[Rfam]
RNA: mir-965 microRNA precursor family
RNA sequence: UAACUGAACGGGAAAAGUUGUAUCGCUUUAUGUUUCUUUUUCAUAAGCGUAUAGCUUUUCCCCUUGGUUG
Numbered sequence: 001u002a003a004c005u006g007a008a009c010g011g012g013a014a015a016a017g018u019u020g021u022a023u024c025g026c027u028u029u030a031u032g033u034u035u036c037u038u039u040u041u042c043a044u045a046a047g048c049g050u051a052u053a054g055c056u057u058u059u060c061c062c063c064u065u066g067g068u069u070g
Stems, first nucleotide, its partner, number of pairs: 003068005010062003014058002018054005026047002029045004
Dot-bracket structure: ..(((((..(((.((..(((((...((.((((.........))))))..)))))..)).))).)))))..